The family of this 86-nucleotide RNA from Stegodyphus mimosarum is "Selenocysteine transfer RNA". The family is grouped with related families in Rfam's "tRNA clan". It scores 52 bits against the family's covariance model. NCBI's taxonomy places the organism under Eukaryota, Bilateria, Ecdysozoa, Chelicerata, Stegodyphus. For this family Rfam cites "Eukaryotic selenocysteine tRNA has the 9/4 secondary structure" (Mizutani and Goto, FEBS Lett, 2000).

RNA sequence: GCCCAGCCGACCAUCGGUGGUCUGGUGUGCGGGCUUCAAACCCGUAGCUGACGAGAGUCAAAGUGGUUCGAUUCUCCCCACGGGGU
Numbered sequence: 001g002c003c004c005a006g007c008c009g010a011c012c013a014u015c016g017g018u019g020g021u022c023u024g025g026u027g028u029g030c031g032g033g034c035u036u037c038a039a040a041c042c043c044g045u046a047g048c049u050g051a052c053g054a055g056a057g058u059c060a061a062a063g064u065g066g067u068u069c070g071a072u073u074c075u076c077c078c079c080a081c082g083g084g085g086u
Stems, first nucleotide, its partner, number of pairs: 001086004006081001009078001012027006028046006049060004063077001065075002